t44 RNA: a 102-nucleotide sequence from Paraglaciecola mesophila. It scores 79 bits against the family's covariance model.
[Rfam]
RNA sequence: CUAACUUAUAUUUAAUAACACACAUACAUCGACACAGUUUUCGGGGUGUUUGUGCAAGAUUCGUCUGCACAGAUCGAGACCUGGGAUGUAUGGAGGCCUAAC
Numbered sequence: 001c002u003a004a005c006u007u008a009u010a011u012u013u014a015a016u017a018a019c020a021c022a023c024a025u026a027c028a029u030c031g032a033c034a035c036a037g038u039u040u041u042c043g044g045g046g047u048g049u050u051u052g053u054g055c056a057a058g059a060u061u062c063g064u065c066u067g068c069a070c071a072g073a074u075c076g077a078g079a080c081c082u083g084g085g086a087u088g089u090a091u092g093g094a095g096g097c098c099u100a101a102c
Stems, first nucleotide, its partner, number of pairs: 023092008035083003039079005048074008

The source organism's lineage runs through Bacteria, Pseudomonadota, Gammaproteobacteria, Alteromonadaceae and Paraglaciecola mesophila.